Shown here is a 91-nucleotide RNA, a member of the family "Hairpin ribozyme 1 from viruses-like metatranscriptomes". The base pairs follow the family's consensus structure, which is taken from published work. Its family is annotated with RNA nuclease activity in the Gene Ontology.

RNA sequence: CCAUUGUGUCUACCGUAAGGUAGACGAAAUGGCUAAGGGAAACACUAGAAAACCCCCUUAACAGGGAGUGAUUAUGGGUAAAUUAACUUAG
Numbered sequence: 001c002c003a004u005u006g007u008g009u010c011u012a013c014c015g016u017a018a019g020g021u022a023g024a025c026g027a028a029a030u031g032g033c034u035a036a037g038g039g040a041a042a043c044a045c046u047a048g049a050a051a052a053c054c055c056c057c058u059u060a061a062c063a064g065g066g067a068g069u070g071a072u073u074a075u076g077g078g079u080a081a082a083u084u085a086a087c088u089u090a091g
Stems, first nucleotide, its partner, number of pairs: 001032004009024006033091005045077003049073002